RNA sequence: UCUUGUUCACAACCAAACUCUACUUGUCCUUCUGAGUGUGAUUACGCCCAUGGAGUAGCUCAGGAGGCAAACAGGGUUACCCUGUGGAUAGGUC
Numbered sequence: 001u002c003u004u005g006u007u008c009a010c011a012a013c014c015a016a017a018c019u020c021u022a023c024u025u026g027u028c029c030u031u032c033u034g035a036g037u038g039u040g041a042u043u044a045c046g047c048c049c050a051u052g053g054a055g056u057a058g059c060u061c062a063g064g065a066g067g068c069a070a071a072c073a074g075g076g077u078u079a080c081c082c083u084g085u086g087g088a089u090a091g092g093u094c
Stems, first nucleotide, its partner, number of pairs: 002092010016078006024070005030065008043057003
A member of the RNA family "mir-618 microRNA precursor family" from Macaca mulatta, 94 nucleotides long. NCBI's taxonomy places the organism under Eukaryota, Opisthokonta, Theria, Haplorrhini, Macaca.